[Rfam]
Rfam assigns this 66-nucleotide RNA sequence from Candidatus Solibacter usitatus to the family "Acido-1 RNA". Taxonomically the source falls in Candidatus Solibacter usitatus (Bacteria, Pseudomonadati, Terriglobia, Candidatus Solibacter).
RNA sequence: AAUGGCCCCGAGCUGGGUACUCGGGGCCUGCACUCAGAGGGUGGCGGUGGGAGGGGACUCACCGCC
Numbered sequence: 001a002a003u004g005g006c007c008c009c010g011a012g013c014u015g016g017g018u019a020c021u022c023g024g025g026g027c028c029u030g031c032a033c034u035c036a037g038a039g040g041g042u043g044g045c046g047g048u049g050g051g052a053g054g055g056g057a058c059u060c061a062c063c064g065c066c
Base pairs, nucleotide, nucleotide: 004028005027006026007025008024009023010022011021043066044065045064046063047062048061049060050059051058